[Rfam]
RNA sequence: AGUGGGAUUCGCCGAAAACCAUUAAAAGAGUAGGCA
Dot-bracket structure: .((((.....[[[.....))))..........]]].

The family of this 36-nucleotide RNA from Niastella koreensis is "DUF805b RNA".
The base pairs follow the family's consensus structure, which is taken from published work.
The sequence is in the family's curated seed alignment.